The family of this 183-nucleotide RNA sequence from Drosophila melanogaster is "R2 RNA element".

RNA sequence: AUAUUGUUUUGAAAGAUGGACGAGGACAUUGCUUAAUCACAAAUUCUUAAGUUUUAUACUCACAAAUUAAGCAACAACAUCCACAUUGUGGAGGUGUUUAGCCCGUAGGCGUAUUUCUCAAUAUGAAUCGGGCAUACCUUAAACAACGGCGUUUUAGGUAUCUUUAAAAGAUUCACCUGGAUC
Dot-bracket structure: .............................((((((((............................)))))))).....(((((.........(((.....(((((....((((((....))))))...))))).(((((................)))))..............)))))))).
Lineage of the source: Eukaryota > Bilateria > Altocrustacea > Ephydroidea > Sophophora. The family's RNA type in Rfam is cis-regulatory element. The match comes from Rfam's covariance-model search (50 bits).